This 159-nucleotide RNA sequence from Streptomyces fuscichromogenes belongs to the Rfam family "c-di-AMP riboswitch aptamer (ydaO/yuaA leader)". This family represents a conserved RNA structure found upstream of the ydaO and yuaA genes in Bacillus subtilis and related genes in other bacteria. The source organism's lineage runs through Bacteria, Bacillati, Kitasatosporales, Streptomycetaceae and Streptomyces. It scores 60 bits against the family's covariance model.

RNA sequence: GAGUCCGGGGCGCCGCAGCGCAUCCGGAGCCGGGGACCCACACCGAUCCCGGGGUGAAUCGGUCCCGACUCCCCUCCGGGGAGCGGACCGUAGGGCAACCCUUCCGAACCACCCGCCCGAACCCGACAGCUAACUCGGUAGGCGGAACGUGGAAGGAGU
Numbered sequence: 001g002a003g004u005c006c007g008g009g010g011c012g013c014c015g016c017a018g019c020g021c022a023u024c025c026g027g028a029g030c031c032g033g034g035g036a037c038c039c040a041c042a043c044c045g046a047u048c049c050c051g052g053g054g055u056g057a058a059u060c061g062g063u064c065c066c067g068a069c070u071c072c073c074c075u076c077c078g079g080g081g082a083g084c085g086g087a088c089c090g091u092a093g094g095g096c097a098a099c100c101c102u103u104c105c106g107a108a109c110c111a112c113c114c115g116c117c118c119g120a121a122c123c124c125g126a127c128a129g130c131u132a133a134c135u136c137g138g139u140a141g142g143c144g145g146a147a148c149g150u151g152g153a154a155g156g157a158g159u
Stems, first nucleotide, its partner, number of pairs: 004028006029139006039051001052124003060090006093118004
Dot-bracket structure: ...((((((.............))))))((((((....(...........)(((.....((((((...................))))))..((((..................))))...))).........))))))....................